The record is a 73-nucleotide RNA from Oxalobacter paraformigenes, which matches "Fluoride riboswitch aptamer (crcB RNA motif)" in Rfam. Lineage of the source: Bacteria > Pseudomonadati > Burkholderiales > Oxalobacteraceae > Oxalobacter.
RNA sequence: CAGACUCAAGGUGAUGGUGUUCCACCUUUCCCAACCGCCACGGUUAUUUGUGGCUGAUGACGCCUGAUUUUUU
Numbered sequence: 001c002a003g004a005c006u007c008a009a010g011g012u013g014a015u016g017g018u019g020u021u022c023c024a025c026c027u028u029u030c031c032c033a034a035c036c037g038c039c040a041c042g043g044u045u046a047u048u049u050g051u052g053g054c055u056g057a058u059g060a061c062g063c064c065u066g067a068u069u070u071u072u073u
Base pairs, nucleotide, nucleotide: 010026011025012024013023016064017063018062019061020060021059037054038053039052040051041050042049043048